[Rfam]
RNA sequence: GACCGGGUCCUGUGCAAUGGACGCCCGUGAACCAGGUCAGGACCGGAAGGUAGCAGCCUUCAUCGGCAUCGUUCGUGUGCCGCAGACCGCCUGGUCGCC
Numbered sequence: 001g002a003c004c005g006g007g008u009c010c011u012g013u014g015c016a017a018u019g020g021a022c023g024c025c026c027g028u029g030a031a032c033c034a035g036g037u038c039a040g041g042a043c044c045g046g047a048a049g050g051u052a053g054c055a056g057c058c059u060u061c062a063u064c065g066g067c068a069u070c071g072u073u074c075g076u077g078u079g080c081c082g083c084a085g086a087c088c089g090c091c092u093g094g095u096c097g098c099c
Stems, first nucleotide, its partner, number of pairs: 004093005010085005015077001017076006023067003027063003034059004042051003

The record is a 99-nucleotide RNA from Ilumatobacter coccineus, which matches "Bacterial small signal recognition particle RNA" in Rfam. Gene Ontology terms of the family: SRP-dependent cotranslational protein targeting to membrane, signal sequence recognition and signal recognition particle, plasma membrane targeting. Lineage of the source: Bacteria > Bacillati > Ilumatobacteraceae > Ilumatobacter > Ilumatobacter coccineus. The base pairs follow the family's consensus structure, which is taken from published work.